[Rfam]
RNA sequence: GAAGUUUGACAGACAAUCGCCGGCUGCGAAAGACCUCGCAGCGGGAGGAAAGUCCGGGCUCCAUAGGGCAGGAUGCUGGAUAACGUCCAGUCAGCGCAAGCUGAAGGAUAGUGCCGCAGAAAUGGACCGCCGAUGGCCUGGAAGUAUGGGUGCUUUGCAUUCAUGCCUCCAGGCACAGGCAAGGGUGGAACCGUGGUGUAAGAGACCACGAGGAAAUAUGGCGACUUAUUUCCUGGUAAACCCCAUCUGGAGCAAGACCGAAGAGGGACGCGGCAAGAAUGUUAAUUCUUGCAGCCUUUGCCCGAGGUGCGUCCGGGUUGGUCGCAGGAUCCGUACAGUAAUGUACGGACUAGAUAGAUGAUUGUCACUUCAAUGGUGGGAGGGUUAGCCCCGUUUGGACCACUGGAAGUACAGAACCCGGCUUAUGGCAAACUUUCCUA
Number, nucleotide and partner (000 for none) at each position: 001g436002a435003a434004g433005u432006u431007u430008g429009a000010c427011a426012g366013a365014c364015a363016a362017u361018c360019g000020c045021c044022g000023g042024c041025u040026g039027c038028g037029a000030a000031a000032g000033a000034c000035c000036u000037c028038g027039c026040a025041g024042c023043g000044g021045g020046a000047g000048g000049a000050a424051a423052g422053u000054c421055c420056g419057g418058g417059c252060u251061c250062c249063a000064u000065a000066g303067g302068g301069c300070a000071g248072g247073a246074u245075g244076c090077u089078g088079g087080a086081u000082a000083a000084c000085g000086u080087c079088c078089a077090g076091u105092c103093a102094g101095c100096g000097c000098a000099a000100g095101c094102u093103g092104a000105a091106g243107g242108a000109u000110a000111g241112u240113g237114c236115c235116g000117c000118a000119g000120a000121a000122a000123u000124g000125g000126a000127c184128c183129g180130c179131c178132g000133a000134u175135g174136g000137c172138c000139u000140g000141g000142a000143a000144g000145u000146a000147u000148g000149g000150g000151u000152g000153c000154u000155u000156u000157g000158c000159a000160u000161u000162c000163a000164u000165g000166c000167c000168u000169c000170c000171a000172g137173g000174c135175a134176c000177a000178g131179g130180c129181a000182a000183g128184g127185g000186u000187g000188g000189a000190a000191c000192c210193g209194u208195g207196g206197u205198g000199u000200a000201a000202g000203a000204g000205a197206c196207c195208a194209c193210g192211a000212g233213g232214a231215a230216a229217u228218a227219u000220g225221g000222c000223g000224a000225c220226u000227u218228a217229u216230u215231u214232c213233c212234u000235g115236g114237u113238a000239a000240a112241c111242c107243c106244c075245a074246u073247c072248u071249g062250g061251a060252g059253c000254a000255a000256g323257a322258c321259c320260g000261a000262a000263g000264a000265g000266g314267g313268a312269c311270g310271c309272g000273g000274c000275a000276a000277g000278a000279a000280u000281g000282u000283u000284a000285a000286u000287u000288c000289u000290u000291g000292c000293a000294g308295c307296c306297u305298u304299u000300g069301c068302c067303c066304g298305a297306g296307g295308u294309g271310c270311g269312u268313c267314c266315g000316g000317g000318u000319u000320g259321g258322u257323c256324g000325c000326a000327g000328g000329a000330u349331c348332c347333g346334u345335a344336c343337a342338g000339u000340a000341a000342u337343g336344u335345a334346c333347g332348g331349a330350c000351u000352a000353g000354a000355u000356a000357g000358a000359u000360g018361a017362u016363u015364g014365u013366c012367a000368c000369u000370u000371c000372a000373a000374u000375g000376g000377u000378g000379g000380g000381a000382g000383g000384g000385u000386u000387a000388g000389c000390c000391c000392c000393g000394u000395u000396u000397g000398g000399a000400c000401c000402a000403c000404u000405g000406g000407a000408a000409g000410u000411a000412c000413a000414g000415a000416a000417c058418c057419c056420g055421g054422c052423u051424u050425a000426u011427g010428g000429c008430a007431a006432a005433c004434u003435u002436u001437c000438c000439u000440a000
RNA: Bacterial RNase P class A